[Rfam]
RNA: ffh sRNA
RNA sequence: GCGAUCCGGGAUCGCCCUCCGUCAGCGCGUCGCGCCCACGGAGGUAUUUGUG
Numbered sequence: 001g002c003g004a005u006c007c008g009g010g011a012u013c014g015c016c017c018u019c020c021g022u023c024a025g026c027g028c029g030u031c032g033c034g035c036c037c038a039c040g041g042a043g044g045u046a047u048u049u050g051u052g
Base pairs, nucleotide, nucleotide: 016044017043018042019041020040021039022038025035026034027033028032